Rfam assigns this 213-nucleotide RNA from Blastomonas sp. AAP25 to the family "permuted transfer-messenger RNA".
From the family's description: Bacterial tmRNA, also known as 10Sa RNA or SsrA, is named for its dual tRNA and mRNA-like properties.
NCBI's taxonomy places the organism under Bacteria, Pseudomonadati, Alphaproteobacteria, Blastomonadaceae, Blastomonas.

[Rfam]
RNA sequence: GACGAUAAACUGCGGCGUGCAAUAGGCACAGCGGACCCGGGGGCGGUACCCGGCGGCUCCACCAUGAACCCUGCGCAGGCAGGGCUUUUGACGGGGCCGAACUAGGAUCGACGUGUGUUGAAAGACGUUGUUUUCGUCCGGGCUGAGUAACCCGUUAAAGGCUCAAACACGAUAAGUGCCAAUGACAAUGACGCACUCGCCCUCGCUGCAUAA
Numbered sequence: 001g002a003c004g005a006u007a008a009a010c011u012g013c014g015g016c017g018u019g020c021a022a023u024a025g026g027c028a029c030a031g032c033g034g035a036c037c038c039g040g041g042g043g044c045g046g047u048a049c050c051c052g053g054c055g056g057c058u059c060c061a062c063c064a065u066g067a068a069c070c071c072u073g074c075g076c077a078g079g080c081a082g083g084g085c086u087u088u089u090g091a092c093g094g095g096g097c098c099g100a101a102c103u104a105g106g107a108u109c110g111a112c113g114u115g116u117g118u119u120g121a122a123a124g125a126c127g128u129u130g131u132u133u134u135c136g137u138c139c140g141g142g143c144u145g146a147g148u149a150a151c152c153c154g155u156u157a158a159a160g161g162c163u164c165a166a167a168c169a170c171g172a173u174a175a176g177u178g179c180c181a182a183u184g185a186c187a188a189u190g191a192c193g194c195a196c197u198c199g200c201c202c203u204c205g206c207u208g209c210a211u212a213a
Stems, first nucleotide, its partner, number of pairs: 001138005015128004027117003031114003037053005054099007139154004
Overview: The family's RNA type in Rfam is non-coding RNA gene. A search with the family's covariance model found it, with a score of 144 bits.